[Rfam]
Shown here is a 45-nucleotide RNA from Dorea longicatena, a member of the family "PreQ1 (pre queuosine) riboswitch aptamer". The source organism's lineage runs through Bacteria, Clostridia, Lachnospiraceae, Dorea and Dorea longicatena. A reference for the family is Schroeder et al. (2020), "Analysis of a preQ1-I riboswitch in effector-free and bound states reveals a metabolite-programmed nucleobase-stacking spine that controls gene regulation", Nucleic Acids Res. This family is a bacterial riboswitch that binds to the metabolite preQ1, an intermediate in the biosynthesis of the modified nucleoside queuosine from GTP. One example of this riboswitch is located in the leader of the Bacillus subtilis ykvJKLM (queCDEF) operon which encodes four genes necessary for queuosine production. PreQ1 binding to the riboswitch aptamer is thought to induce premature transcription termination within the leader to down-regulate expression of these genes.
RNA sequence: CUUGAACUGGUUCGAAAACCUCCCAGUAUAAAAAACUAGGCAAAG
Number, nucleotide and partner (000 for none) at each position: 001c000002u000003u000004g000005a000006a027007c026008u025009g024010g023011u000012u000013c000014g000015a000016a037017a000018a000019c000020c000021u000022c000023c010024c009025a008026g007027u006028a000029u000030a000031a000032a000033a000034a000035a000036c000037u016038a000039g000040g000041c000042a000043a000044a000045g000

Rfam links the family to the GO term queuosine biosynthetic process.